[Rfam]
Nucleotides: 212
Base pairs, nucleotide, nucleotide: 001212003210005208006207007206008205009204012203013202014201015197016196017195018194019193028183029182030181031041033091034090035089036088037087038086039085050084051083058076061073062072082190103176104175105174106173107172108125109124110123111122112121113120114119129169130168131167132166138161139160144154145153146152
Number, partner (000 for none) and nucleotide at each position: 001212g002000c003210g004000c005208u006207u007206c008205g009204g010000g011000u012203c013202u014201g015197u016196g017195g018194u019193u020000g021000c022000a023000a024000a025000u026000c027000g028183a029182u030181g031041c032000c033091a034090g035089u036088c037087g038086c039085a040000g041031g042000c043000a044000a045000a046000a047000c048000g049000a050084u051083c052000c053000a054000c055000g056000u057000a058076a059000g060000c061073g062072a063000a064000c065000g066000a067000a068000a069000u070000a071000g072062u073061c074000c075000g076058u077000g078000a079000g080000c081000a082190u083051g084050g085039u086038g087037c088036g089035g090034c091033u092000u093000a094000g095000a096000c097000g098000u099000u100000a101000g102000u103176c104175c105174a106173a107172c108125c109124g110123g111122c112121g113120c114119a115000u116000c117000u118000u119114u120113g121112c122111g123110u124109c125108g126000a127000g128000a129169g130168g131167g132166g133000u134000a135000g136000u137000a138161g139160u140000g141000g142000g143000g144154a145153g146152c147000g148000a149000a150000a151000u152146g153145c154144u155000u156000a157000u158000g159000a160139g161138c162000g163000a164000a165000c166132c167131c168130u169129c170000c171000a172107g173106u174105u175104g176103g177000c178000g179000g180000g181030u182029g183028u184000g185000g186000g187000g188000g189000c190082a191000a192000a193019g194018a195017c196016c197015a198000g199000g200000u201014c202013a203012g204009c205008c206007g207006a208005a209000c210003c211000c212001c

A member of the RNA family "raiA RNA", 212 nucleotides long. It is annotated as a riboswitch. The sequence is in the family's curated seed alignment.